[Rfam]
RNA sequence: UUGCACGGUGCUAACCCCGGGCUUGUCGGAUUCAAAUCGCCUGAAGAAGGAAGCCCCAAUGCCUGUGCUAGAUCCACAAUACCAUUCAGUGUUGCAGGUCUUGAUGCUUCGAGCAUGUGAUUGAUCUGUGUCAGCGUAAUGGAUACAUUU
Numbered sequence: 001u002u003g004c005a006c007g008g009u010g011c012u013a014a015c016c017c018c019g020g021g022c023u024u025g026u027c028g029g030a031u032u033c034a035a036a037u038c039g040c041c042u043g044a045a046g047a048a049g050g051a052a053g054c055c056c057c058a059a060u061g062c063c064u065g066u067g068c069u070a071g072a073u074c075c076a077c078a079a080u081a082c083c084a085u086u087c088a089g090u091g092u093u094g095c096a097g098g099u100c101u102u103g104a105u106g107c108u109u110c111g112a113g114c115a116u117g118u119g120a121u122u123g124a125u126c127u128g129u130g131u132c133a134g135c136g137u138a139a140u141g142g143a144u145a146c147a148u149u150u
Stems, first nucleotide, its partner, number of pairs: 003068006010062002019056005024050001026047002082142005090133002093130006099120002